[Rfam]
Nucleotides: 108
Stems, first nucleotide, its partner, number of pairs: 004107001006105009016095004021090003025086008035076009045066002
Number, partner (000 for none) and nucleotide at each position: 001000g002000g003000g004107c005000a006105u007104g008103u009102a010101u011100u012099u013098a014097c015000c016095u017094c018093a019092a020000u021090c022089u023088a024000c025086a026085u027084g028083u029082g030081u031080u032079g033000a034000a035076g036075u037074g038073g039072a040071u041070u042069g043068g044000a045066g046065u047000a048000g049000a050000u051000u052000u053000a054000a055000a056000c057000u058000a059000a060000g061000u062000u063000c064000c065046a066045c067000u068043c069042u070041a071040a072039u073038c074037c075036a076035c077000u078000c079032c080031a081030a082029u083028a084027c085026a086025u087000a088023u089022g090021g091000u092019u093018u094017g095016a096000g097014g098013u099012a100011g101010a102009u103008a104007c105006a106000c107004g108000c